A member of the RNA family "SAM riboswitch aptamer (S box leader)" from Dethiosulfatibacter aminovorans, 100 nucleotides long. Gene Ontology term of the family: regulation of gene expression. The SAM riboswitch is found upstream of a number of genes which code for proteins involved in methionine or cysteine biosynthesis in Gram-positive bacteria.
RNA sequence: GCCUUAUCAAGAGAGGUGGAGGGACGGGCCCUAUGAAACCCGGCAUCCUGUACGAAAAGUAUCAGGUGCCAAUUCCCGCGGUUAAUCCGGAAGAUGAGGA
Numbered sequence: 001g002c003c004u005u006a007u008c009a010a011g012a013g014a015g016g017u018g019g020a021g022g023g024a025c026g027g028g029c030c031c032u033a034u035g036a037a038a039c040c041c042g043g044c045a046u047c048c049u050g051u052a053c054g055a056a057a058a059g060u061a062u063c064a065g066g067u068g069c070c071a072a073u074u075c076c077c078g079c080g081g082u083u084a085a086u087c088c089g090g091a092a093g094a095u096g097a098g099g100a
Stems, first nucleotide, its partner, number of pairs: 002099007013041001015040003021031003025078004042070004047066002050062003074092001079089003